[Rfam]
RNA sequence: UCGACUGUACUUUACAGGAUCAUGUAUACAGUCAAUUUUCAGUUUCUUUGUUCACCGAACAUAGACACACAUACCAGGCUGGAAGAUGACACAUAGUGCGCCGUCCGUAAAGGGAGGUGUUUCAGGUAGUAAGAAUUCUUUAUUGGGUUUCUACUUCUGUCGAUGAUCUUGCUUGUCUUGCGCCCCCGCUUUUGUUUUGCUUUUUAAGCAGGCAGCGGGUUUAAAGAGUGCGGCAUAGCGAGGAUGGUCGCACAUUCUGACAGUCC
Number, nucleotide and partner (000 for none) at each position: 001u041002c000003g039004a000005c000006u034007g000008u000009a032010c031011u030012u000013u000014a000015c000016a027017g000018g025019a000020u000021c000022a000023u000024g000025u018026a000027u016028a000029c000030a011031g010032u009033c000034a006035a000036u000037u000038u000039u003040c000041a001042g000043u000044u000045u065046c000047u000048u064049u063050g062051u061052u000053c000054a000055c000056c000057g000058a000059a000060c000061a051062u050063a049064g048065a045066c000067a000068c000069a000070c000071a000072u000073a000074c000075c000076a000077g265078g264079c263080u262081g261082g000083a000084a000085g000086a000087u000088g000089a000090c000091a000092c000093a000094u000095a000096g253097u252098g251099c250100g249101c247102c246103g245104u244105c243106c242107g000108u000109a000110a170111a169112g168113g167114g000115a000116g000117g000118u000119g000120u000121u000122u000123c000124a000125g000126g000127u000128a000129g000130u000131a000132a000133g000134a000135a000136u000137u000138c000139u000140u000141u000142a000143u000144u000145g000146g000147g000148u000149u000150u000151c000152u000153a000154c000155u000156u000157c000158u000159g000160u000161c000162g000163a000164u000165g000166a000167u113168c112169u111170u110171g000172c238173u237174u000175g000176u000177c233178u000179u000180g000181c000182g000183c000184c000185c000186c000187c000188g000189c000190u000191u000192u000193u000194g000195u000196u000197u000198u000199g000200c000201u000202u000203u000204u000205u000206a000207a000208g000209c000210a000211g000212g000213c000214a000215g000216c000217g000218g000219g000220u000221u000222u000223a000224a000225a000226g000227a000228g000229u000230g000231c000232g000233g177234c000235a000236u000237a173238g172239c000240g000241a000242g106243g105244a104245u103246g102247g101248u000249c100250g099251c098252a097253c096254a000255u000256u000257c000258u000259g000260a000261c081262a080263g079264u078265c077266c000
ACEA small nucleolar RNA U3: a 266-nucleotide RNA sequence from Coemansia reversa. The base pairs follow the family's consensus structure, which is taken from published work. It scores 59 bits against the family's covariance model. Rfam links the family to the GO terms RNA processing and nucleolus. By type it is a C/D-box small nucleolar RNA. About the family: Small nucleolar RNAs (snoRNAs) are involved in the processing and modification of rRNA in the nucleolus. There are two main classes of snoRNAs: the box C/D class, and the box H/ACA class. U3 snoRNA is a member of the box C/D class. Indeed, the box C/D element is a subset of the six short sequence elements found in all U3 snoRNAs, namely boxes A, A', B, C, C', and D. The U3 snoRNA secondary structure is characterised by a small 5' domain (with boxes A and A'), and a larger 3' domain (with boxes B, C, C', and D), the two domains being linked by a single-stranded hinge. Boxes B and C form the B/C motif, which appears to be exclusive to U3 snoRNAs, and boxes C' and D form the C'/D motif. The latter is functionally similar to the C/D motifs found in other snoRNAs. The 5' domain and the hinge region act as a pre-rRNA-binding domain. The 3' domain has conserved protein-binding sites. Both the box B/C and box C'/D motifs are sufficient for nuclear retention of U3 snoRNA. The box C'/D motif is also necessary for nucleolar localisation, stability and hyper-methylation of U3 snoRNA. Both box B/C and C'/D motifs are involved in specific protein interactions and are necessary for the rRNA processing functions of U3 snoRNA. On this family, see Speckmann et al., Mol Cell Biol 1999: "Nuclear retention elements of U3 small nucleolar RNA".